The family of this 84-nucleotide RNA from Bombyx mori is "mir-2807 microRNA precursor family". Taxonomically the source falls in Bombyx (Eukaryota, Metazoa, Bilateria, Neolepidoptera).
[Rfam]
RNA sequence: UUCUGUGUGCUUUGUAUGCAGUUGGAACAGCGCCCCUAGCGGCAAACAUAGGCAAACGUUCCAACUCCAUACAAAUUUGAGUUA
Numbered sequence: 001u002u003c004u005g006u007g008u009g010c011u012u013u014g015u016a017u018g019c020a021g022u023u024g025g026a027a028c029a030g031c032g033c034c035c036c037u038a039g040c041g042g043c044a045a046a047c048a049u050a051g052g053c054a055a056a057c058g059u060u061c062c063a064a065c066u067c068c069a070u071a072c073a074a075a076u077u078u079g080a081g082u083u084a
Stems, first nucleotide, its partner, number of pairs: 009077001011075006018068001020066009034052002039047001